[Rfam]
A member of the RNA family "serC leader" from Roseovarius halotolerans, 52 nucleotides long. For this family Rfam cites "Evidence for a second class of S-adenosylmethionine riboswitches and other regulatory RNA motifs in alpha-proteobacteria" (Corbino et al., Genome Biol, 2005). It scores 71 bits against the family's covariance model. The pairing is the family consensus, mapped onto this sequence. NCBI's taxonomy places the organism under Bacteria, Pseudomonadati, Pseudomonadota, Roseobacteraceae, Roseovarius.

Nucleotides: 052
Stems, first nucleotide, its partner, number of pairs: 011028006032047006
Number, partner (000 for none) and nucleotide at each position: 001000g002000c003000g004000u005000g006000g007000g008000a009000c010000a011028c012027c013026c014025c015024u016023c017000c018000c019000c020000a021000a022000c023016g024015a025014g026013g027012g028011g029000c030000g031000c032047u033046u034045a035044u036043c037042u038000g039000g040000a041000a042037g043036g044035a045034u046033a047032g048000c049000a050000c051000a052000a